[Rfam]
RNA sequence: UAUUGGUCAGUUGGCAAGAUGUCGGCAUAGCUGAGAAUUUAUUUUUGUUUUUUGAAAGGCCGCUAUGCUGCAUCUAGUCAAUUUUUUCAAUG
Dot-bracket structure: ....((..(((((((.(((((.(((((((((..............................)))))))))))))).)))))))..)).....

Rfam assigns this 92-nucleotide RNA from Musca domestica to the family "mir-31 microRNA precursor family". The family is grouped with related families in Rfam's "mir-31 microRNA precursor family". The source organism's lineage runs through Eukaryota, Metazoa, Arthropoda, Cyclorrhapha and Musca. Pairs were carried over by alignment from the consensus structure, which was predicted with RNAalifold. It scores 60 bits against the family's covariance model. Its family is annotated with RISC complex and gene silencing by miRNA in the Gene Ontology. For this family Rfam cites "The small RNA profile during Drosophila melanogaster development" (Aravin et al., Dev Cell, 2003). The family has 75 seed sequences and 1,181 matches in Rfam 15.1.